This 115-nucleotide RNA sequence from Fictibacillus aquaticus belongs to the Rfam family "SAM riboswitch aptamer (S box leader)".
[Rfam]
RNA sequence: CUCUUAUCGAGAGCGGUGGAGGGACUGGCCCUAUGAAACCCGGCAACCAAACUUACACGUUGUAAGUUCAGGUGCUAAAUCCUGCAGAACACGUUUGUGUUCUGAAAGAUAAGAG
Numbered sequence: 001c002u003c004u005u006a007u008c009g010a011g012a013g014c015g016g017u018g019g020a021g022g023g024a025c026u027g028g029c030c031c032u033a034u035g036a037a038a039c040c041c042g043g044c045a046a047c048c049a050a051a052c053u054u055a056c057a058c059g060u061u062g063u064a065a066g067u068u069c070a071g072g073u074g075c076u077a078a079a080u081c082c083u084g085c086a087g088a089a090c091a092c093g094u095u096u097g098u099g100u101u102c103u104g105a106a107a108g109a110u111a112a113g114a115g
Stems, first nucleotide, its partner, number of pairs: 001115008013041001015040003021031003025084001027082002042076004047072002050068006080107001085104006
About this RNA:
Its family is annotated with regulation of gene expression in the Gene Ontology. For this family Rfam cites "The riboswitch-mediated control of sulfur metabolism in bacteria" (Epshtein et al., Proc Natl Acad Sci U S A, 2003).